[Rfam]
RNA sequence: CCGUUCAACUCGUCCCUGCGAGACAGGGACUACGGGAG
Numbered sequence: 001c002c003g004u005u006c007a008a009c010u011c012g013u014c015c016c017u018g019c020g021a022g023a024c025a026g027g028g029a030c031u032a033c034g035g036g037a038g
Stems, first nucleotide, its partner, number of pairs: 001035004012030007
Shown here is a 38-nucleotide RNA, a member of the family "THF-II riboswitch (folE RNA)". For this family Rfam cites "Structural insights into translation regulation by the THF-II riboswitch" (Xu et al., Nucleic Acids Res, 2023). Its family is annotated with regulation of gene expression in the Gene Ontology.